[Rfam]
Nucleotides: 181
Base pairs, nucleotide, nucleotide: 013091014090015089029081030080031079035077036075037074038073039072040071041070043068044067046064047063050060051059052058107174108173109172110171111170120160121159122158123157124156125155128152129151132143133142134141135140
Number, partner (000 for none) and nucleotide at each position: 001000g002000g003000u004000g005000a006000a007000u008000g009000g010000u011000g012000u013091g014090c015089a016000c017000g018000g019000u020000g021000u022000u023000a024000g025000u026000c027000c028000g029081u030080g031079u032000u033000a034000u035077g036075u037074g038073c039072u040071g041070u042000u043068g044067c045000u046064g047063g048000u049000c050060u051059g052058u053000g054000u055000u056000u057000u058052g059051c060050a061000g062000a063047c064046u065000u066000g067044g068043c069000a070041g071040c072039a073038g074037u075036g076000c077035u078000c079031a080030c081029g082000c083000c084000a085000c086000a087000c088000c089015u090014g091013c092000a093000g094000c095000c096000a097000u098000a099000g100000a101000a102000a103000a104000a105000c106000c107174g108173g109172a110171g111170a112000u113000c114000a115000u116000a117000g118000u119000a120160c121159u122158g123157g124156c125155c126000c127000u128152u129151g130000a131000c132143g133142u134141c135140u136000u137000u138000a139000c140135a141134g142133a143132c144000a145000u146000c147000u148000c149000a150000c151129c152128a153000u154000u155125g156124g157123u158122c159121a160120g161000c162000c163000u164000c165000c166000a167000a168000a169000c170111u171110c172109u173108c174107c175000a176000a177000c178000a179000u180000g181000c

This 181-nucleotide RNA sequence from Stegastes partitus belongs to the Rfam family "Small nucleolar RNA SNORA23". It scores 95 bits against the family's covariance model. About the family: The members of this family belong to the H/ACA class of snoRNAs which are thought to guide the sites of modification of uridines to pseudouridines. Pairs were carried over by alignment from the consensus structure, which was predicted with RNAalifold. Rfam links the family to the GO terms RNA processing and nucleolus.